[Rfam]
RNA: Pistol ribozyme
RNA sequence: AGUCGGUAGAGCGACUUUAAAAAGGCAUUAGGCUCUACGCGUUCCAGGAGGAAACUCCUGGAGGUUGUU
Numbered sequence: 001a002g003u004c005g006g007u008a009g010a011g012c013g014a015c016u017u018u019a020a021a022a023a024g025g026c027a028u029u030a031g032g033c034u035c036u037a038c039g040c041g042u043u044c045c046a047g048g049a050g051g052a053a054a055c056u057c058c059u060g061g062a063g064g065u066u067g068u069u
Stems, first nucleotide, its partner, number of pairs: 001016004006038006024069004032040001042063008